[Rfam]
RNA: ZMP/ZTP riboswitch aptamer (pfl RNA motif)
Organism: Clostridium acetobutylicum
RNA sequence: UAAGAAUCGUAUAACCGGCGGAAGUGGAAUAACCACAGGGAGUACGAUUUUAAAAAGCCGACCGCCUGGGCAAAAAGA
Numbered sequence: 001u002a003a004g005a006a007u008c009g010u011a012u013a014a015c016c017g018g019c020g021g022a023a024g025u026g027g028a029a030u031a032a033c034c035a036c037a038g039g040g041a042g043u044a045c046g047a048u049u050u051u052a053a054a055a056a057g058c059c060g061a062c063c064g065c066c067u068g069g070g071c072a073a074a075a076a077g078a
Stems, first nucleotide, its partner, number of pairs: 003051010015039002017066005024036004057071003